A member of the RNA family "Group II catalytic intron D1-D4-4" from Escherichia coli, 154 nucleotides long.
The family has 90 seed sequences and 840 matches in Rfam 15.1.
Group II introns are found in rRNA, tRNA and mRNA of organelles in fungi, plants and protists, and also in mRNA in bacteria.
NCBI's taxonomy places the organism under Bacteria, Pseudomonadati, Pseudomonadota, Gammaproteobacteria, Escherichia coli.
For this family Rfam cites "The ins and outs of group II introns" (Bonen and Vogel, Trends Genet, 2001).
Rfam's curators put it in the seed alignment.
RNA sequence: UUGCAGGUGAGAGUCCUGCCGCAGUAAUUGGUUAGUUUGACUGCGUAGCGAUGGCGUACAUGUGGAGGGUGACCGAAGCAUGGGAGCAACGCCGGAUAAACGUGUCCCCCGAUCCAGACAGUGGGCGCGCGCAAAUACACAGCCCGUAACUGAC
Numbered sequence: 001u002u003g004c005a006g007g008u009g010a011g012a013g014u015c016c017u018g019c020c021g022c023a024g025u026a027a028u029u030g031g032u033u034a035g036u037u038u039g040a041c042u043g044c045g046u047a048g049c050g051a052u053g054g055c056g057u058a059c060a061u062g063u064g065g066a067g068g069g070u071g072a073c074c075g076a077a078g079c080a081u082g083g084g085a086g087c088a089a090c091g092c093c094g095g096a097u098a099a100a101c102g103u104g105u106c107c108c109c110c111g112a113u114c115c116a117g118a119c120a121g122u123g124g125g126c127g128c129g130c131g132c133a134a135a136u137a138c139a140c141a142g143c144c145c146g147u148a149a150c151u152g153a154c
Stems, first nucleotide, its partner, number of pairs: 020045005053093005059083001060081004067074002102128006131147002